[Rfam]
RNA sequence: UGUCUCCACUAUUCUCCUCCAAGAAAAUAGUUUUGAGCCCGCGCAAGAGCGGGCUUUUUUUU
Numbered sequence: 001u002g003u004c005u006c007c008a009c010u011a012u013u014c015u016c017c018u019c020c021a022a023g024a025a026a027a028u029a030g031u032u033u034u035g036a037g038c039c040c041g042c043g044c045a046a047g048a049g050c051g052g053g054c055u056u057u058u059u060u061u062u
Base pairs, nucleotide, nucleotide: 008031009030010029011028012027013024014023036055037054038053039052040051041050042049
RNA: Betaproteobacteria toxic small RNA